[Rfam]
RNA sequence: UACAGUGGAUAGUCGCUGCUUUUCCAGGAAAAGUAGAGGAAAGUCGAGACACGCACACUGCUGUAAAAGGCAGUGUAGUUUGGUGCCUGGUGUAAGCCAGGGCAGGGUGACCUGACGACGGCGAAAAUAACUCGCUGGAGUUAGUAGUAGCCAUAAAGUGCCACAGAAACUAUUUCACCGGGUGACCGGUGAGUGCAAGGGUAAACUCCACCGGCGUGCAACCCAAAUAGGCAGUUUUACUGCGGGUAGGGGCACCCCUUAAUCGGGGAAGAAAGCGCAAGCUUUCUUAGAUAGAUGACUAUCAUAACAGAAUCUCGCUUACAACU
Numbered sequence: 001u002a003c004a005g006u007g008g009a010u011a012g013u014c015g016c017u018g019c020u021u022u023u024c025c026a027g028g029a030a031a032a033g034u035a036g037a038g039g040a041a042a043g044u045c046g047a048g049a050c051a052c053g054c055a056c057a058c059u060g061c062u063g064u065a066a067a068a069g070g071c072a073g074u075g076u077a078g079u080u081u082g083g084u085g086c087c088u089g090g091u092g093u094a095a096g097c098c099a100g101g102g103c104a105g106g107g108u109g110a111c112c113u114g115a116c117g118a119c120g121g122c123g124a125a126a127a128u129a130a131c132u133c134g135c136u137g138g139a140g141u142u143a144g145u146a147g148u149a150g151c152c153a154u155a156a157a158g159u160g161c162c163a164c165a166g167a168a169a170c171u172a173u174u175u176c177a178c179c180g181g182g183u184g185a186c187c188g189g190u191g192a193g194u195g196c197a198a199g200g201g202u203a204a205a206c207u208c209c210a211c212c213g214g215c216g217u218g219c220a221a222c223c224c225a226a227a228u229a230g231g232c233a234g235u236u237u238u239a240c241u242g243c244g245g246g247u248a249g250g251g252g253c254a255c256c257c258c259u260u261a262a263u264c265g266g267g268g269a270a271g272a273a274a275g276c277g278c279a280a281g282c283u284u285u286c287u288u289a290g291a292u293a294g295a296u297g298a299c300u301a302u303c304a305u306a307a308c309a310g311a312a313u314c315u316c317g318c319u320u321a322c323a324a325c326u
Base pairs, nucleotide, nucleotide: 004326005325006324007322008303009302010301011300012299013298014297016036017035018034019033020032021031041320042319043318045317046316047315048314049313050218051217052216053215054214055076056075057074058073060071061070081213082212083211084210085209086101087100088099089098090097091096102116103114104113105112106111117208118207120152121151122150128143129142130141131140132139133138158206159205160202161201162200175192176191177190178189179188180187181186222251223250224249255268256267257266258265269288270287271286272285273284274283275282276281
This 326-nucleotide RNA sequence from Desulfofarcimen acetoxidans belongs to the Rfam family "Bacterial RNase P class B". The literature on the family includes a 1999 paper in Nucleic Acids Res by Brown, "The Ribonuclease P Database". Rfam links the family to the GO terms tRNA processing, dimeric ribonuclease P complex and ribonuclease P activity. Rfam describes the family as follows. Ribonuclease P (RNase P) is a ubiquitous endoribonuclease, found in archaea, bacteria and eukarya as well as chloroplasts and mitochondria. Its best characterised activity is the generation of mature 5'-ends of tRNAs by cleaving the 5'-leader elements of precursor-tRNAs. Cellular RNase Ps are ribonucleoproteins.